[Rfam]
RNA sequence: UUCAAUGAAGAAAAAACUACUUUUCGAAAGGGGCUUUGAAUAAUGGGUACAAUCAUCUGUCAAACUUGCAGCGAGACAAUCGAGCACUUUGAAUACGAGAAGGUUACAACACUUUAUUCAACAUGCGACCACUGCGAUUGUAAUCACGAAGAGAAUUAAUCUUUAUUAAAAACAUAUGAAAAAAGCAUGCAGAAUUUGCAUGCUUUCUU
Numbered sequence: 001u002u003c004a005a006u007g008a009a010g011a012a013a014a015a016a017c018u019a020c021u022u023u024u025c026g027a028a029a030g031g032g033g034c035u036u037u038g039a040a041u042a043a044u045g046g047g048u049a050c051a052a053u054c055a056u057c058u059g060u061c062a063a064a065c066u067u068g069c070a071g072c073g074a075g076a077c078a079a080u081c082g083a084g085c086a087c088u089u090u091g092a093a094u095a096c097g098a099g100a101a102g103g104u105u106a107c108a109a110c111a112c113u114u115u116a117u118u119c120a121a122c123a124u125g126c127g128a129c130c131a132c133u134g135c136g137a138u139u140g141u142a143a144u145c146a147c148g149a150a151g152a153g154a155a156u157u158a159a160u161c162u163u164u165a166u167u168a169a170a171a172a173c174a175u176a177u178g179a180a181a182a183a184a185g186c187a188u189g190c191a192g193a194a195u196u197u198g199c200a201u202g203c204u205u206u207c208u209u
Stems, first nucleotide, its partner, number of pairs: 016104002020102007029089003033085003044079001046077001048075001050073001056071001130140002182206011
This 209-nucleotide RNA from Bacillus sp. HNG belongs to the Rfam family "SR1 sRNA". Pairs were carried over by alignment from the consensus structure, which is taken from published work. It is annotated as a small RNA. Lineage of the source: Bacteria > Bacillati > Bacillota > Bacilli > Bacillus. The literature on the family includes a 2007 paper in Nucleic Acids Res by Heidrich et al., "In vitro analysis of the interaction between the small RNA SR1 and its primary target ahrC mRNA".